[Rfam]
RNA sequence: GAGUGGCAAUGAAACCGUUACCAUUACUGAGUUUAGUAAUGGUAAGGGUUCUGUUGCUGCUC
Numbered sequence: 001g002a003g004u005g006g007c008a009a010u011g012a013a014a015c016c017g018u019u020a021c022c023a024u025u026a027c028u029g030a031g032u033u034u035a036g037u038a039a040u041g042g043u044a045a046g047g048g049u050u051c052u053g054u055u056g057c058u059g060c061u062c
Base pairs, nucleotide, nucleotide: 003060004059005058007056008055009054013050014049015048016047018045019044020043021042022041023040024039025038026037027036028035029034